RNA: Plant signal recognition particle RNA
Organism: Tripterygium wilfordii
RNA sequence: GUCGAGCUUAGUAACGCAGGCUUGUGACCCAAGUGGGGACAUUAAGGUGUUGGGACAUGGUCUAAGCCCAUGCAGUCGGGCACACGGCUGGCUCAUUACUGGUUUGCCCGUUCCAAGCUAGGAGUUGGCCCAUGGGACUCGUGUGAAGACUUGGGUUUCUUGGGCUUUGGAGUGGGAGGGACUGCGUGAGGCUGGUUUCACAGAGCAACGACAACUCCCCUCUCUUGGCAGUGGAAGGAUAACAGACCGGUGCCACCUGGGCUUCAAUAUGGCUACAUGAGCUGUGGCUUAAUUGGACCAACACUUUU
Numbered sequence: 001g002u003c004g005a006g007c008u009u010a011g012u013a014a015c016g017c018a019g020g021c022u023u024g025u026g027a028c029c030c031a032a033g034u035g036g037g038g039a040c041a042u043u044a045a046g047g048u049g050u051u052g053g054g055a056c057a058u059g060g061u062c063u064a065a066g067c068c069c070a071u072g073c074a075g076u077c078g079g080g081c082a083c084a085c086g087g088c089u090g091g092c093u094c095a096u097u098a099c100u101g102g103u104u105u106g107c108c109c110g111u112u113c114c115a116a117g118c119u120a121g122g123a124g125u126u127g128g129c130c131c132a133u134g135g136g137a138c139u140c141g142u143g144u145g146a147a148g149a150c151u152u153g154g155g156u157u158u159c160u161u162g163g164g165c166u167u168u169g170g171a172g173u174g175g176g177a178g179g180g181a182c183u184g185c186g187u188g189a190g191g192c193u194g195g196u197u198u199c200a201c202a203g204a205g206c207a208a209c210g211a212c213a214a215c216u217c218c219c220c221u222c223u224c225u226u227g228g229c230a231g232u233g234g235a236a237g238g239a240u241a242a243c244a245g246a247c248c249g250g251u252g253c254c255a256c257c258u259g260g261g262c263u264u265c266a267a268u269a270u271g272g273c274u275a276c277a278u279g280a281g282c283u284g285u286g287g288c289u290u291a292a293u294u295g296g297a298c299c300a301a302c303a304c305u306u307u308u
Base pairs, nucleotide, nucleotide: 001040002039003038004023005022006021007020008019009018028037029036030035044307045306046305047304048303049302050301051300052299053298056295057294058291059290060289061287062286065283066282069279070278071277072276074274075273076272077271078265079264080262081261083259084258087256089255090254091253093252099250100249101248102247103246104245105244106243108238109237111236112235113234114233115232117229118228119227120226121225122224123223124222127166128165129164130163131162132161134159135158136157137156138155139154140153141152143150144149167172174219175218176217177216178215185210186209187208192203193202194201
Dot-bracket structure: (((((((((........))))))....(((....))))))...((((((((((..(((((((..((..((((.((((((((.((..(.(((.(.....((((((((.((.(((((.((((((((..((((((.((((((((.((....)).)))))))).))))))(....).(((((......(((....(((......)))....)))....)))))..))))))))..)))))))....)))))))).))))).)).)).)).....)))).))))..))..)).)))..))..)))))))))).